[Rfam]
This 93-nucleotide sequence from Prunus armeniaca belongs to the Rfam family "MIR6288 microRNA precursor family". Its family is annotated with RISC complex and miRNA-mediated post-transcriptional gene silencing in the Gene Ontology. The organism belongs to Prunus, within Eukaryota.
RNA sequence: CCAAAAUUAGGCACUUGUUCUUGUUUAAUUGGUUUUUAGUGUGUUAAAAUUUUCUAAGAACCAAUUAAAAAAAUGACAAGUGGCUAGUGUUGA
Number, nucleotide and partner (000 for none) at each position: 001c000002c092003a091004a090005a000006a088007u087008u086009a085010g084011g000012c082013a081014c080015u079016u078017g077018u076019u075020c000021u073022u072023g000024u069025u068026u067027a066028a065029u064030u063031g062032g061033u060034u059035u058036u057037u056038a055039g054040u000041g000042u000043g000044u000045u000046a000047a000048a000049a000050u000051u000052u000053u000054c039055u038056a037057a036058g035059a034060a033061c032062c031063a030064a029065u028066u027067a026068a025069a024070a000071a000072a022073a021074u000075g019076a018077c017078a016079a015080g014081u013082g012083g000084c010085u009086a008087g007088u006089g000090u004091u003092g002093a000

The family's consensus secondary structure was predicted with RNAalifold.